[Rfam]
RNA sequence: UGAUAGCUGUGAAGCGUGAAGUUGCUGUCCAUUGCGACAGGUUCUCCGUGGAGCGAAUGUCAAGUUAGAAACUGGCGACAA
Numbered sequence: 001u002g003a004u005a006g007c008u009g010u011g012a013a014g015c016g017u018g019a020a021g022u023u024g025c026u027g028u029c030c031a032u033u034g035c036g037a038c039a040g041g042u043u044c045u046c047c048g049u050g051g052a053g054c055g056a057a058u059g060u061c062a063a064g065u066u067a068g069a070a071a072c073u074g075g076c077g078a079c080a081a
Base pairs, nucleotide, nucleotide: 014049015048016047018046019045021043025040026039027038028037029036058080059079060078061077064076065075066074067073